[Rfam]
RNA sequence: AGUUUCUCGUUGCCGUUCAUCAGACAGUUUUUUUUUUUAACAAAAACUGUCUGAUGAACGGCAACGAGAAACU
Numbered sequence: 001a002g003u004u005u006c007u008c009g010u011u012g013c014c015g016u017u018c019a020u021c022a023g024a025c026a027g028u029u030u031u032u033u034u035u036u037u038u039a040a041c042a043a044a045a046a047c048u049g050u051c052u053g054a055u056g057a058a059c060g061g062c063a064a065c066g067a068g069a070a071a072c073u
Stems, first nucleotide, its partner, number of pairs: 004070012017057004023051002030046002
Dot-bracket structure: ...((((((((((((.((((..((.....((.............))...))..)))).))))))))))))...
Source information:
mir-980 microRNA precursor family: a 73-nucleotide RNA from Octopus sinensis. The source organism's lineage runs through Eukaryota, Eumetazoa, Incirrata, Octopodidae and Octopus.